Shown here is a 166-nucleotide sequence from Candidatus Scalindua japonica, a member of the family "Group II catalytic intron D1-D4-3". Pairs were carried over by alignment from the consensus structure.
RNA sequence: UAAGCCGUGAGGUUUGGUCUGAAGGAAGCCGGAGUGCAAUUCUGCGAGCCGACGAACAGAAAGGUCAUAUAAGGCUUAACCUCCGGGCGAGUUAGCACAACAUAACGAAGCCCGGUGAUUCAGGAGGUAGGGUAAAUGAUCCGGUUGUGCAGAGAAAGUUCACAUA
Numbered sequence: 001u002a003a004g005c006c007g008u009g010a011g012g013u014u015u016g017g018u019c020u021g022a023a024g025g026a027a028g029c030c031g032g033a034g035u036g037c038a039a040u041u042c043u044g045c046g047a048g049c050c051g052a053c054g055a056a057c058a059g060a061a062a063g064g065u066c067a068u069a070u071a072a073g074g075c076u077u078a079a080c081c082u083c084c085g086g087g088c089g090a091g092u093u094a095g096c097a098c099a100a101c102a103u104a105a106c107g108a109a110g111c112c113c114g115g116u117g118a119u120u121c122a123g124g125a126g127g128u129a130g131g132g133u134a135a136a137u138g139a140u141c142c143g144g145u146u147g148u149g150c151a152g153a154g155a156a157a158g159u160u161c162a163c164a165u166a
Stems, first nucleotide, its partner, number of pairs: 001016006031163001036159002041153006047146005063141006074133003079128006085113004091106004